About this RNA: This 76-nucleotide RNA from Methylocystis sp. B8 belongs to the Rfam family "Makes More Granules Regulator RNA (mmgR)". The organism belongs to Methylocystis, within Bacteria. Pairs were carried over by alignment from the consensus structure. Clan: suhB sRNA clan. About the family: SuhB later renamed mmgR (makes more granules regulator) was a putative non-coding RNA found multiple times in the Agrobacterium tumefaciens genome and related alpha-proteobacteria.

RNA sequence: CUUCGUAGCCCUCCUUGGGCGUUUCCUCCCUUGACUUGGGCCGCUGGUUCUUCCGGCGGCCCUUUUUUACGCCAUG
Number, nucleotide and partner (000 for none) at each position: 001c000002u000003u000004c000005g000006u000007a000008g020009c019010c018011c017012u000013c000014c000015u000016u000017g011018g010019g009020c008021g000022u000023u000024u000025c000026c000027u000028c000029c000030c000031u000032u000033g000034a000035c000036u000037u000038g000039g061040g060041c059042c058043g057044c056045u055046g054047g053048u000049u000050c000051u000052u000053c047054c046055g045056g044057c043058g042059g041060c040061c039062c000063u000064u000065u000066u000067u000068u000069a000070c000071g000072c000073c000074a000075u000076g000